[Rfam]
RNA sequence: UGGUCAUUACCAAGGCUUUUAGAACGCAGUUUCUAAUUUGCUGUGGACAUGACCGUAAAACAAAAUCCCAACUAGGUUUUUCUUCCUGCUACUUUGUUAGCAUACAGCCUGUUGGGAACAUUU
Numbered sequence: 001u002g003g004u005c006a007u008u009a010c011c012a013a014g015g016c017u018u019u020u021a022g023a024a025c026g027c028a029g030u031u032u033c034u035a036a037u038u039u040g041c042u043g044u045g046g047a048c049a050u051g052a053c054c055g056u057a058a059a060a061c062a063a064a065a066u067c068c069c070a071a072c073u074a075g076g077u078u079u080u081u082c083u084u085c086c087u088g089c090u091a092c093u094u095u096g097u098u099a100g101c102a103u104a105c106a107g108c109c110u111g112u113u114g115g116g117a118a119c120a121u122u123u
Stems, first nucleotide, its partner, number of pairs: 003053005010046003026041004068116002071113001075109004087102003
The family of this 123-nucleotide sequence from Bos taurus is "Small nucleolar RNA SNORA32".
It is annotated as an H/ACA-box small nucleolar RNA.
NCBI's taxonomy places the organism under Eukaryota, Bilateria, Teleostomi, Bovidae, Bos.
ACA32 is a member of the H/ACA class of snoRNA that guide the sites of modification of uridines to pseudouridines.
Pairs were carried over by alignment from the consensus structure, which was predicted with RNAfold.
Rfam links the family to the GO terms nucleolus and RNA processing.